Rfam assigns this 89-nucleotide RNA from Camellia sinensis to the family "Small nucleolar RNA U54". Lineage of the source: Eukaryota > Embryophyta > Euphyllophyta > Pentapetalae > Camellia sinensis. The family is grouped with related families in Rfam's "U54 clan". The family has 21 seed sequences and 614 matches in Rfam 15.1. It is annotated as a C/D-box small nucleolar RNA. A reference for the family is Chen et al. (2003), "The high diversity of snoRNAs in plants: identification and comparative study of 120 snoRNA genes from Oryza sativa", Nucleic Acids Res. Pairs were carried over by alignment from the consensus structure, which was predicted with PFOLD. Rfam describes the family as follows. U54 is a C/D box small nucleolar RNA, which acts as a methylation guide for 18S ribosomal RNA in plants.
RNA sequence: GGCUCUGUGAUUAAAUGCCUAAUUUGUUGGGCAAUAUACGCUAUUCUGAUUCUAAAUAUGAACAGAGAAUUUUUGUGAUAAUGAGAGCC
Numbered sequence: 001g002g003c004u005c006u007g008u009g010a011u012u013a014a015a016u017g018c019c020u021a022a023u024u025u026g027u028u029g030g031g032c033a034a035u036a037u038a039c040g041c042u043a044u045u046c047u048g049a050u051u052c053u054a055a056a057u058a059u060g061a062a063c064a065g066a067g068a069a070u071u072u073u074u075g076u077g078a079u080a081a082u083g084a085g086a087g088c089c
Stems, first nucleotide, its partner, number of pairs: 001089005
Dot-bracket structure: (((((...............................................................................)))))